[Rfam]
Shown here is a 135-nucleotide RNA sequence from Atrichornis clamosus, a member of the family "U8 small nucleolar RNA". Gene Ontology terms of the family: RNA processing and nucleolus. For this family Rfam cites "The U8 snoRNA gene family: identification and characterization of distinct, functional U8 genes in Xenopus" (Peculis et al., Gene, 2001). A search with the family's covariance model found it, with a score of 51 bits. The family's RNA type in Rfam is C/D-box small nucleolar RNA.
RNA sequence: UUGUCAGUGCGGUACAUCCUGACCUGCCCCGCCUCGGCGGGCAGCGCGUGAUGAGCGCGUGCGUGAUGACGUCAUGAUUACGUCACGCGGGCGCGCGGGCCGCGCAACAAGGCCCGCGCGCCCAGAGUCUCUGAG
Dot-bracket structure: .......................(((.(((((....))))))))..........................(.(.(....).).)......(((((((((.............)))))))))..............
Numbered sequence: 001u002u003g004u005c006a007g008u009g010c011g012g013u014a015c016a017u018c019c020u021g022a023c024c025u026g027c028c029c030c031g032c033c034u035c036g037g038c039g040g041g042c043a044g045c046g047c048g049u050g051a052u053g054a055g056c057g058c059g060u061g062c063g064u065g066a067u068g069a070c071g072u073c074a075u076g077a078u079u080a081c082g083u084c085a086c087g088c089g090g091g092c093g094c095g096c097g098g099g100c101c102g103c104g105c106a107a108c109a110a111g112g113c114c115c116g117c118g119c120g121c122c123c124a125g126a127g128u129c130u131c132u133g134a135g
Stems, first nucleotide, its partner, number of pairs: 024044003028041005071084001073082001075080001091121009